A member of the RNA family "Plastid-rps18 3UTR RNA" from Vitis vinifera, 54 nucleotides long.
The source organism's lineage runs through Eukaryota, Viridiplantae, Mesangiospermae, Vitales and Vitis.
Rfam describes the family as follows. Plastid rps18 is a non-coding RNA (ncRNA) present in plastids. It was identified as a short stem-loop motif in the 3 prime untranslate region (3UTR) of rps18 gene.
Rfam 15.1 lists 1,462 matches to the family in 409 species.
The match comes from Rfam's covariance-model search (63 bits).
RNA sequence: UGCAAGUAUUUUACGAUUAAGAAGUAACUGCCUCUUGUAUAUAUAUAUAUAUGU
Number, nucleotide and partner (000 for none) at each position: 001u000002g000003c000004a000005a000006g000007u000008a000009u000010u000011u000012u000013a000014c000015g000016a000017u000018u037019a036020a035021g034022a033023a000024g031025u030026a000027a000028c000029u000030g025031c024032c000033u022034c021035u020036u019037g018038u000039a000040u000041a000042u000043a000044u000045a000046u000047a000048u000049a000050u000051a000052u000053g000054u000